[Rfam]
RNA: U4 spliceosomal RNA
Organism: Rhinopithecus roxellana
RNA sequence: AGCUUCACACAGUGGCAAUUGUUGUAGCCAGUGAGGUUUAUCUGAAGCACAAUUAUUGCUAAUUGAAAACUUUUCCCAGUACCCUGCUGUGAUGACUUGAAAUAGAGUUGGCAUUGACAGUUUUUGACAGUCUCCACAGAGA
Numbered sequence: 001a002g003c004u005u006c007a008c009a010c011a012g013u014g015g016c017a018a019u020u021g022u023u024g025u026a027g028c029c030a031g032u033g034a035g036g037u038u039u040a041u042c043u044g045a046a047g048c049a050c051a052a053u054u055a056u057u058g059c060u061a062a063u064u065g066a067a068a069a070c071u072u073u074u075c076c077c078a079g080u081a082c083c084c085u086g087c088u089g090u091g092a093u094g095a096c097u098u099g100a101a102a103u104a105g106a107g108u109u110g111g112c113a114u115u116g117a118c119a120g121u122u123u124u125u126g127a128c129a130g131u132c133u134c135c136a137c138a139g140a141g142a
Base pairs, nucleotide, nucleotide: 021053022052023051024050025049027048028047035043036042086118088116089114090113091112093110094109095108096107097106098105131142132141133140134139